[Rfam]
RNA sequence: GGUCCUGGUGUUGUGUGGAAGACUAGUGAUUUUGUUGUGAUGCUGAGCAAUGAUAUGACAACAAGUCCCAGUCUGCCUCUCAGCACAGGGCA
Numbered sequence: 001g002g003u004c005c006u007g008g009u010g011u012u013g014u015g016u017g018g019a020a021g022a023c024u025a026g027u028g029a030u031u032u033u034g035u036u037g038u039g040a041u042g043c044u045g046a047g048c049a050a051u052g053a054u055a056u057g058a059c060a061a062c063a064a065g066u067c068c069c070a071g072u073c074u075g076c077c078u079c080u081c082a083g084c085a086c087a088g089g090g091c092a
Stems, first nucleotide, its partner, number of pairs: 002091005008086002011083003015079001017077002020074005026069001028067005034062005
Source information: This 92-nucleotide RNA sequence from Esox lucius belongs to the Rfam family "mir-7 microRNA precursor family". Rfam 15.1 lists 2,589 matches to the family in 797 species. This family represents the microRNA (miRNA) precursor mir-7. Its family is annotated with miRNA-mediated post-transcriptional gene silencing and RISC complex in the Gene Ontology. It scores 73 bits against the family's covariance model.